The family of this 104-nucleotide RNA sequence from Cyphellophora europaea is "tRNA". The source organism's lineage runs through Eukaryota, saccharomyceta, Pezizomycotina, Chaetothyriales and Cyphellophora europaea.
[Rfam]
RNA sequence: UCUCUUGUGGUGUAAUGGUUAACAUCUCCGGUUUUCAUUGAAAACCACGUUGAUCUCGGUACUGAGUUACCCGGAAGCUCCGGGUUCAAUUCCCGGCAAGAGAA
Numbered sequence: 001u002c003u004c005u006u007g008u009g010g011u012g013u014a015a016u017g018g019u020u021a022a023c024a025u026c027u028c029c030g031g032u033u034u035u036c037a038u039u040g041a042a043a044a045c046c047a048c049g050u051u052g053a054u055c056u057c058g059g060u061a062c063u064g065a066g067u068u069a070c071c072c073g074g075a076a077g078c079u080c081c082g083g084g085u086u087c088a089a090u091u092c093c094c095g096g097c098a099a100g101a102g103a104a
Stems, first nucleotide, its partner, number of pairs: 001103007010025004027075005080096005